[Rfam]
RNA sequence: AGAAGACCUCCCGUAAAUAGAGCCGUUUCAUGCAAACGCAGGUUGCAAAAAAGCGGAAUGACGUGUGUGGACACAUCACCCCGC
Numbered sequence: 001a002g003a004a005g006a007c008c009u010c011c012c013g014u015a016a017a018u019a020g021a022g023c024c025g026u027u028u029c030a031u032g033c034a035a036a037c038g039c040a041g042g043u044u045g046c047a048a049a050a051a052a053g054c055g056g057a058a059u060g061a062c063g064u065g066u067g068u069g070g071a072c073a074c075a076u077c078a079c080c081c082c083g084c
Stems, first nucleotide, its partner, number of pairs: 005044001007042003022033002053084004059078003063074002
The record is an 84-nucleotide sequence from Geopseudomonas guangdongensis, which matches "Pseudomonas sRNA P31" in Rfam. The family's RNA type in Rfam is small RNA. For this family Rfam cites "Identification of 17 Pseudomonas aeruginosa sRNAs and prediction of sRNA-encoding genes in 10 diverse pathogens using the bioinformatic tool sRNAPredict2" (Livny et al., Nucleic Acids Res, 2006). The base pairs follow the family's consensus structure, which was predicted with CMfinder.